RNA sequence: UGUUUUUGUUGGGUAGGCAGUGCCUUACAAGAUGGAGGAGAAUUUCUUCUCCAUCUUGUAAGGCACUGCCUACCCAACAAAAACA
Numbered sequence: 001u002g003u004u005u006u007u008g009u010u011g012g013g014u015a016g017g018c019a020g021u022g023c024c025u026u027a028c029a030a031g032a033u034g035g036a037g038g039a040g041a042a043u044u045u046c047u048u049c050u051c052c053a054u055c056u057u058g059u060a061a062g063g064c065a066c067u068g069c070c071u072a073c074c075c076a077a078c079a080a081a082a083a084c085a
Stems, first nucleotide, its partner, number of pairs: 001085013015071010027059010040049003
Rfam assigns this 85-nucleotide RNA from Microcaecilia unicolor to the family "mir-449 microRNA precursor family". Pairs were carried over by alignment from the consensus structure, which was predicted with RNAalifold. A search with the family's covariance model found it, with a score of 64 bits. For this family Rfam cites "Small RNA expression and strain specificity in the rat" (Linsen et al., BMC Genomics, 2010).